[Rfam]
Shown here is a 523-nucleotide part of an RNA from Sutterella sp. AM11-39, a member of the family "Bacterial large subunit ribosomal RNA".
RNA sequence: GACUAAGUGUAUGUGGUGGAUGCCUUGGCGAUCACAGGCGAUGAAGGACGUAGUAGCUUGCGAUAAGCUGCGGGGAGCCGGCAAACGGGCUUUGAUCCGCAGAUUUCCGAAUGGGGGAACCCACCGACGUAGGUCGGUAUCACGCACUGAAUACAUAGGUGCGUGAGGCGAACGGAGCGAACUGAAACAUCUAAGUAGCUCCAGGAAAAGAAAUCAACCGAGAUUGCGAAAGUAGCGGCGAGCGAAAUUGCAGCAGCCCAGUGUUCUGAUAGCACGAACGACAGCAGAAGGGUCUGGAAAGGCCCGCUACAGAGGGUGAUAGCCCCGUAUGCGAAAUCGGACGUGUGGUACUAAGGAACCGAUAAGUAGGGCGGGACACGUGACAUCCUGUCUGAAGAUGGGGGGACCAUCCUCCAAGGCUAAAUACUCGUGAUCGACCGAUAGUGAACCAGUACUGUGAAGGAAAGGCGAAAAGAACCCCGGGAGGGGAGUGAAAUAGAACCUGAAACCGCAUACAUACAAA
Numbered sequence: 001g002a003c004u005a006a007g008u009g010u011a012u013g014u015g016g017u018g019g020a021u022g023c024c025u026u027g028g029c030g031a032u033c034a035c036a037g038g039c040g041a042u043g044a045a046g047g048a049c050g051u052a053g054u055a056g057c058u059u060g061c062g063a064u065a066a067g068c069u070g071c072g073g074g075g076a077g078c079c080g081g082c083a084a085a086c087g088g089g090c091u092u093u094g095a096u097c098c099g100c101a102g103a104u105u106u107c108c109g110a111a112u113g114g115g116g117g118a119a120c121c122c123a124c125c126g127a128c129g130u131a132g133g134u135c136g137g138u139a140u141c142a143c144g145c146a147c148u149g150a151a152u153a154c155a156u157a158g159g160u161g162c163g164u165g166a167g168g169c170g171a172a173c174g175g176a177g178c179g180a181a182c183u184g185a186a187a188c189a190u191c192u193a194a195g196u197a198g199c200u201c202c203a204g205g206a207a208a209a210g211a212a213a214u215c216a217a218c219c220g221a222g223a224u225u226g227c228g229a230a231a232g233u234a235g236c237g238g239c240g241a242g243c244g245a246a247a248u249u250g251c252a253g254c255a256g257c258c259c260a261g262u263g264u265u266c267u268g269a270u271a272g273c274a275c276g277a278a279c280g281a282c283a284g285c286a287g288a289a290g291g292g293u294c295u296g297g298a299a300a301g302g303c304c305c306g307c308u309a310c311a312g313a314g315g316g317u318g319a320u321a322g323c324c325c326c327g328u329a330u331g332c333g334a335a336a337u338c339g340g341a342c343g344u345g346u347g348g349u350a351c352u353a354a355g356g357a358a359c360c361g362a363u364a365a366g367u368a369g370g371g372c373g374g375g376a377c378a379c380g381u382g383a384c385a386u387c388c389u390g391u392c393u394g395a396a397g398a399u400g401g402g403g404g405g406a407c408c409a410u411c412c413u414c415c416a417a418g419g420c421u422a423a424a425u426a427c428u429c430g431u432g433a434u435c436g437a438c439c440g441a442u443a444g445u446g447a448a449c450c451a452g453u454a455c456u457g458u459g460a461a462g463g464a465a466a467g468g469c470g471a472a473a474a475g476a477a478c479c480c481c482g483g484g485a486g487g488g489g490a491g492u493g494a495a496a497u498a499g500a501a502c503c504u505g506a507a508a509c510c511g512c513a514u515a516c517a518u519a520c521a522a523a
Base pairs, nucleotide, nucleotide: 007518008517009516010515011514012513013512014511015510016509022503023468024467027439028438029436030435031434032433033432034431035430036428037427038169039168046108047107048106049062050061051060068102069101070100071099072098073097074096077090078089079088113122114121115120123138124137125136126135127134128133140166141165142164143163144162145161146160147159148158173204174202175201176200177199178198184191185190214221215220224424225252226251227250228249229248235243236242255421256420257419258418263359264358265357266356267355270348272346273345274344275343276342279339280338281337284332285331286330290305291304292303293302294301308312314326315325316324369393370392371391372390373389374388375387376386400415401414402413403412404411455462456461478489479488480487481486